[Rfam]
RNA: Rhodo-rpoB RNA
Organism: Marinibacterium profundimaris
RNA sequence: GGAUCGGGAGGCCGCCACUCGGGACGGCGGCCACGCAUUGAUCCGAACUGUCUGCUCGUAAGGGGAAGCCGCCGUGGCCCGGCGGCCGGCUUG
Numbered sequence: 001g002g003a004u005c006g007g008g009a010g011g012c013c014g015c016c017a018c019u020c021g022g023g024a025c026g027g028c029g030g031c032c033a034c035g036c037a038u039u040g041a042u043c044c045g046a047a048c049u050g051u052c053u054g055c056u057c058g059u060a061a062g063g064g065g066a067a068g069c070c071g072c073c074g075u076g077g078c079c080c081g082g083c084g085g086c087c088g089g090c091u092u093g
Stems, first nucleotide, its partner, number of pairs: 001044005010032007066092004071086004